[Rfam]
RNA sequence: CAAAUCACAUGACAACGAUAGGGAGCACGCUUGUAUGCAUCCAUGACCUUUUAUGAAUGGCUACGAGCGUGCUCUCUCUCGUUGUCAAAUUGAU
Numbered sequence: 001c002a003a004a005u006c007a008c009a010u011g012a013c014a015a016c017g018a019u020a021g022g023g024a025g026c027a028c029g030c031u032u033g034u035a036u037g038c039a040u041c042c043a044u045g046a047c048c049u050u051u052u053a054u055g056a057a058u059g060g061c062u063a064c065g066a067g068c069g070u071g072c073u074c075u076c077u078c079u080c081g082u083u084g085u086c087a088a089a090u091u092g093a094u
Base pairs, nucleotide, nucleotide: 010087011086012085013084014083016081017080020077021076023074025072026071027070028069029068030067031066032065033064034063
RNA: MIR535 microRNA precursor family
Organism: Hibiscus trionum